[Rfam]
RNA sequence: UCUGGUGCUGAUUGUCCAAACGCAAUUCUUGCUAUACUUCUCCAUAUCCAGGAGUUGUGGAUGGACAUCAUGCCCCCAA
Numbered sequence: 001u002c003u004g005g006u007g008c009u010g011a012u013u014g015u016c017c018a019a020a021c022g023c024a025a026u027u028c029u030u031g032c033u034a035u036a037c038u039u040c041u042c043c044a045u046a047u048c049c050a051g052g053a054g055u056u057g058u059g060g061a062u063g064g065a066c067a068u069c070a071u072g073c074c075c076c077c078a079a
Stems, first nucleotide, its partner, number of pairs: 004076002007073001009070004014066005021059011